The family of this 138-nucleotide RNA from Pipistrellus kuhlii is "Small nucleolar RNA SNORA32". Rfam links the family to the GO terms RNA processing and nucleolus. ACA32 is a member of the H/ACA class of snoRNA that guide the sites of modification of uridines to pseudouridines. Taxonomically the source falls in Pipistrellus (Eukaryota, Teleostomi, Tetrapoda, Boreoeutheria). The match comes from Rfam's covariance-model search (88 bits). Rfam classes the family as an H/ACA-box small nucleolar RNA. The family's consensus secondary structure was predicted with RNAfold.

RNA sequence: UAGUCAUUUCCAAGGCUUUUAGAAUGCAGUUUGUCAUUUGCCAUGGACAUGACCACAAAACAUUUCCCCAGUAGGGUUUUUUUUUUUUUUUUUUCUCUGCUAUGUUGACAACAUAGCAUUCAGCCUACUGGAACAUUU
Numbered sequence: 001u002a003g004u005c006a007u008u009u010c011c012a013a014g015g016c017u018u019u020u021a022g023a024a025u026g027c028a029g030u031u032u033g034u035c036a037u038u039u040g041c042c043a044u045g046g047a048c049a050u051g052a053c054c055a056c057a058a059a060a061c062a063u064u065u066c067c068c069c070a071g072u073a074g075g076g077u078u079u080u081u082u083u084u085u086u087u088u089u090u091u092u093u094u095c096u097c098u099g100c101u102a103u104g105u106u107g108a109c110a111a112c113a114u115a116g117c118a119u120u121c122a123g124c125c126u127a128c129u130g131g132a133a134c135a136u137u138u
Base pairs, nucleotide, nucleotide: 003053004052005051006050007049010046011045012044026041027040028039029038067131069130070129074125075124077122085118087116